Shown here is a 73-nucleotide RNA sequence from Serpula lacrymans, a member of the family "tRNA". Rfam describes the family as follows. Transfer RNA (tRNA) molecules are approximately 80 nucleotides in length. Their secondary structure includes four short double-helical elements and three loops (D, anti-codon, and T loops). Further hydrogen bonds mediate the characteristic L-shaped molecular structure. tRNAs have two regions of fundamental functional importance: the anti-codon, which is responsible for specific mRNA codon recognition, and the 3' end, to which the tRNAs corresponding amino acid is attached (by aminoacyl-tRNA synthetases). tRNAs cope with the degeneracy of the genetic code in two manners: having more than one tRNA (with a specific anti-codon) for a particular amino acid; and 'wobble' base-pairing, i.e. permitting non-standard base-pairing at the 3rd anti-codon position.
RNA sequence: GUCUUGGUAGCUUAGUUGGUAAAGCACCAGACCAUGAAAGCUGGAGUCCCAGGUUCAAGCCCUGGCCAAUGCA
Numbered sequence: 001g002u003c004u005u006g007g008u009a010g011c012u013u014a015g016u017u018g019g020u021a022a023a024g025c026a027c028c029a030g031a032c033c034a035u036g037a038a039a040g041c042u043g044g045a046g047u048c049c050c051a052g053g054u055u056c057a058a059g060c061c062c063u064g065g066c067c068a069a070u071g072c073a
Stems, first nucleotide, its partner, number of pairs: 001072002004069004010025004027044004049065005
Overview: Taxonomically the source falls in Serpula lacrymans var. lacrymans (Eukaryota, Dikarya, Agaricomycotina, Serpula).